[Rfam]
RNA sequence: CCUCUUCCAACUUUGUGUUCGGCGCCCUAUAUCGGUCGCGCUCGCGGGGCUUGCCCCACGGCUAUGGCGAUAAACGCCGGCGAAGAAUAGGCACAGCGGACCCGGGGGCAGUACCCGGCGGCUCCACCAUCGCAGCUGCUUCCCAGCAGCUUCGUUGACGGGGCCGAACCAGGAUCGACGUGUGUUGAAAAGCGCUGGUUUUUGCUCGGAAUGGGACCACCGCGACGGCCCAUACACAAGUGCCAACGAUAACGAAGCACUCGCGAUUGCGGCGUAACCUGACGGCUUAACGGCCUAAGGUUACUCCAAAAUAGCGCGGUCGGACCGCACCGGGCAACAGAAGCGGAUUCC
Numbered sequence: 001c002c003u004c005u006u007c008c009a010a011c012u013u014u015g016u017g018u019u020c021g022g023c024g025c026c027c028u029a030u031a032u033c034g035g036u037c038g039c040g041c042u043c044g045c046g047g048g049g050c051u052u053g054c055c056c057c058a059c060g061g062c063u064a065u066g067g068c069g070a071u072a073a074a075c076g077c078c079g080g081c082g083a084a085g086a087a088u089a090g091g092c093a094c095a096g097c098g099g100a101c102c103c104g105g106g107g108g109c110a111g112u113a114c115c116c117g118g119c120g121g122c123u124c125c126a127c128c129a130u131c132g133c134a135g136c137u138g139c140u141u142c143c144c145a146g147c148a149g150c151u152u153c154g155u156u157g158a159c160g161g162g163g164c165c166g167a168a169c170c171a172g173g174a175u176c177g178a179c180g181u182g183u184g185u186u187g188a189a190a191a192g193c194g195c196u197g198g199u200u201u202u203u204g205c206u207c208g209g210a211a212u213g214g215g216a217c218c219a220c221c222g223c224g225a226c227g228g229c230c231c232a233u234a235c236a237c238a239a240g241u242g243c244c245a246a247c248g249a250u251a252a253c254g255a256a257g258c259a260c261u262c263g264c265g266a267u268u269g270c271g272g273c274g275u276a277a278c279c280u281g282a283c284g285g286c287u288u289a290a291c292g293g294c295c296u297a298a299g300g301u302u303a304c305u306c307c308a309a310a311a312u313a314g315c316g317c318g319g320u321c322g323g324a325c326c327g328c329a330c331c332g333g334g335c336a337a338c339a340g341a342a343g344c345g346g347a348u349u350c351c
Stems, first nucleotide, its partner, number of pairs: 040062003066206005076199007092184003096181003102118005119166007207222003212232003217228002317332004323349002326346001
The record is a 351-nucleotide sequence from Sphingomonas sp. OV641, which matches "Alphaproteobacteria transfer-messenger RNA" in Rfam.
Rfam classes the family as a non-coding RNA gene.
On this family, see Williams and Bartel, RNA 1996: "Phylogenetic analysis of tmRNA secondary structure".
Bacterial tmRNA, also known as 10Sa RNA or SsrA, is named for its dual tRNA and mRNA-like properties. Its role is to liberate the mRNA from a stalled ribosome. To accomplish this part of the tmRNA is used as a reading frame that ends in a translation stop signal. The broken mRNA is replaced in the ribosome by the tmRNA and translation of the tmRNA leads to addition of a proteolysis tag to the incomplete protein enabling recognition by a protease.
Pairs were carried over by alignment from the consensus structure, which is taken from published work.
The organism belongs to Sphingomonas, within Bacteria.